Rfam assigns this 97-nucleotide sequence from Oharaeibacter diazotrophicus to the family "Bacterial small signal recognition particle RNA". Rfam classes the family as a non-coding RNA gene.

[Rfam]
RNA sequence: GGAGGUUGGCGGUGGACGUGCCACUCGCCGACCGGGUCAGGUCCGGAAGGAAGCAGCCCAGGUGAGCCGCGGCGCGGGUCAUCAGUCGGCCUCCCAC
Numbered sequence: 001g002g003a004g005g006u007u008g009g010c011g012g013u014g015g016a017c018g019u020g021c022c023a024c025u026c027g028c029c030g031a032c033c034g035g036g037u038c039a040g041g042u043c044c045g046g047a048a049g050g051a052a053g054c055a056g057c058c059c060a061g062g063u064g065a066g067c068c069g070c071g072g073c074g075c076g077g078g079u080c081a082u083c084a085g086u087c088g089g090c091c092u093c094c095c096a097c
Stems, first nucleotide, its partner, number of pairs: 003092005011083004017076006024066006034059004042051003